[Rfam]
RNA sequence: UAGUGAAAUGAUGGCAGUCAUCUUUUGGGAUUGACCUGAAAUGAAGAGAGUACUCAUUGCUGAUCGCUU
Number, nucleotide and partner (000 for none) at each position: 001u000002a068003g067004u066005g065006a064007a000008a000009u000010g000011a000012u000013g000014g000015c000016a000017g000018u000019c000020a000021u000022c000023u000024u000025u000026u000027g000028g000029g000030a000031u000032u000033g000034a000035c000036c000037u000038g000039a000040a000041a000042u000043g000044a000045a000046g000047a000048g000049a000050g000051u000052a000053c000054u000055c000056a000057u000058u000059g000060c000061u000062g000063a000064u006065c005066g004067c003068u002069u000

A member of the RNA family "Small nucleolar RNA SNORD2" from Canis lupus, 69 nucleotides long. On this family, see Zhou et al., Gene 2004: "Identification of a novel box C/D snoRNA from mouse nucleolar cDNA library". Gene Ontology terms of the family: nucleolus and RNA processing.